This 102-nucleotide RNA sequence from Lutispora thermophila belongs to the Rfam family "Purine riboswitch aptamer".

RNA sequence: CACUUAUAUGUUAUUUUAGCUCAUAUAAUAUCAGGAAUAUGGCCUGAAAGUCUCUACCAAACAACCGUAAAUUGUUUGACUAUGAGUGAAAUGCACAGUUCA
Numbered sequence: 001c002a003c004u005u006a007u008a009u010g011u012u013a014u015u016u017u018a019g020c021u022c023a024u025a026u027a028a029u030a031u032c033a034g035g036a037a038u039a040u041g042g043c044c045u046g047a048a049a050g051u052c053u054c055u056a057c058c059a060a061a062c063a064a065c066c067g068u069a070a071a072u073u074g075u076u077u078g079a080c081u082a083u084g085a086g087u088g089a090a091a092u093g094c095a096c097a098g099u100u101c102a
Base pairs, nucleotide, nucleotide: 019087020086021085022084023083024082025081029049031047032046033045034044035043058078059077060076061075062074063073064072

Rfam describes the family as follows. Riboswitches are metabolite binding domains within certain messenger RNAs that serve as precision sensors for their corresponding targets. A reference for the family is Mandal and Breaker (2004), "Adenine riboswitches and gene activation by disruption of a transcription terminator", Nat Struct Mol Biol. The match comes from Rfam's covariance-model search (90 bits).